[Rfam]
RNA sequence: CCUGGCUGAGGUAGUAGUUUGUGCUGUUGGUCGGGUUGUGACAUUGCCCGCUGUGGAGAUAACUGCGCAAGCUACUGCCUUGCUAGU
Numbered sequence: 001c002c003u004g005g006c007u008g009a010g011g012u013a014g015u016a017g018u019u020u021g022u023g024c025u026g027u028u029g030g031u032c033g034g035g036u037u038g039u040g041a042c043a044u045u046g047c048c049c050g051c052u053g054u055g056g057a058g059a060u061a062a063c064u065g066c067g068c069a070a071g072c073u074a075c076u077g078c079c080u081u082g083c084u085a086g087u
Stems, first nucleotide, its partner, number of pairs: 002086005008081017026063002033049004051058002
RNA: let-7 microRNA precursor family